Shown here is an 80-nucleotide RNA sequence from [Eubacterium] cellulosolvens, a member of the family "S10-Clostridia ribosomal protein leader". The family's RNA type in Rfam is cis-regulatory leader. The family's consensus secondary structure is taken from published work. The organism belongs to [Eubacterium] cellulosolvens, within Bacteria.

[Rfam]
RNA sequence: UGAAAGCUAUGAAGCGAGAGAUUGCAGCGAAGAGCUGGUAACUCCGUGGAGCAAAUGUCUAGUCAAGAUACAGGCGAAAC
Numbered sequence: 001u002g003a004a005a006g007c008u009a010u011g012a013a014g015c016g017a018g019a020g021a022u023u024g025c026a027g028c029g030a031a032g033a034g035c036u037g038g039u040a041a042c043u044c045c046g047u048g049g050a051g052c053a054a055a056u057g058u059c060u061a062g063u064c065a066a067g068a069u070a071c072a073g074g075c076g077a078a079a080c
Base pairs, nucleotide, nucleotide: 014047015046016045018044019043020042025037026036027035028034056079058077059076062075063074064073